[Rfam]
The record is a 103-nucleotide RNA from Riemerella anatipestifer, which matches "SAM riboswitch aptamer (S box leader)" in Rfam. NCBI's taxonomy places the organism under Bacteria, Flavobacteriia, Flavobacteriales, Weeksellaceae, Riemerella anatipestifer. About the family: The SAM riboswitch is found upstream of a number of genes which code for proteins involved in methionine or cysteine biosynthesis in Gram-positive bacteria.
RNA sequence: AUGUUAUCAAGAAAGGCGGAGGGACUAGACCCUGUGAAGCCUUAGCAACCCUUUCAUCAAGAAAGAAGGUGCUACAUUCUACCUAUUUUGGGAUAGAUAACUA
Dot-bracket structure: ..((((((....(((((...(((..[[[[)))......)))))((((.((((((.......))))..))))))...(]]]]((((...))))..)))))))..